[Rfam]
RNA sequence: GCACCUCAGUCGUUCCUGUUCUCGCUGUGCAGUGCAGGUCUGGGGACAGUGGGUGCUACAGCACAGCAGUGGAAGGUCCAAAUGGGUUGUUUACCACUGGUUUGGGACUCAUCUUGACAUCUCUGCAACACUU
Numbered sequence: 001g002c003a004c005c006u007c008a009g010u011c012g013u014u015c016c017u018g019u020u021c022u023c024g025c026u027g028u029g030c031a032g033u034g035c036a037g038g039u040c041u042g043g044g045g046a047c048a049g050u051g052g053g054u055g056c057u058a059c060a061g062c063a064c065a066g067c068a069g070u071g072g073a074a075g076g077u078c079c080a081a082a083u084g085g086g087u088u089g090u091u092u093a094c095c096a097c098u099g100g101u102u103u104g105g106g107a108c109u110c111a112u113c114u115u116g117a118c119a120u121c122u123c124u125g126c127a128a129c130a131c132u133u
Stems, first nucleotide, its partner, number of pairs: 001056005013046006021038002066126004071121001080114001082112006094105003